[Rfam]
RNA sequence: GAGCUAUGAAGAUUUUAAAUGAGUCUGACAUUCCAUUGAAGACAUGAGAUCCAACUCUGAGCUCACUGAAAAG
Numbered sequence: 001g002a003g004c005u006a007u008g009a010a011g012a013u014u015u016u017a018a019a020u021g022a023g024u025c026u027g028a029c030a031u032u033c034c035a036u037u038g039a040a041g042a043c044a045u046g047a048g049a050u051c052c053a054a055c056u057c058u059g060a061g062c063u064c065a066c067u068g069a070a071a072a073g
Base pairs, nucleotide, nucleotide: 001064002063003062004061
Notes:
Small nucleolar RNA SNORD19: a 73-nucleotide sequence from Setophaga kirtlandii. The family's RNA type in Rfam is C/D-box small nucleolar RNA. Lineage of the source: Eukaryota > Deuterostomia > Archosauria > Telluraves > Setophaga. Gene Ontology terms of the family: RNA processing and nucleolus. Pairs were carried over by alignment from the consensus structure. Clan: SNORD19 clan. A search with the family's covariance model found it, with a score of 50 bits.